A member of the RNA family "Clostridiales-2 RNA" from Cellulosilyticum lentocellum, 87 nucleotides long.
Rfam classes the family as a small RNA.

[Rfam]
RNA sequence: AGACUAUAAGGGGUGCAGGGGAAGAAUUCCCAGCCGUAUUUAGGAGGGGGCUUAGCUGACAUGUUUUUUGUCAGCGUCGAAGGGAAU
Numbered sequence: 001a002g003a004c005u006a007u008a009a010g011g012g013g014u015g016c017a018g019g020g021g022a023a024g025a026a027u028u029c030c031c032a033g034c035c036g037u038a039u040u041u042a043g044g045a046g047g048g049g050g051c052u053u054a055g056c057u058g059a060c061a062u063g064u065u066u067u068u069u070g071u072c073a074g075c076g077u078c079g080a081a082g083g084g085a086a087u
Base pairs, nucleotide, nucleotide: 015034016033018031019030020029021028022027055075056074057073058072059071060070061069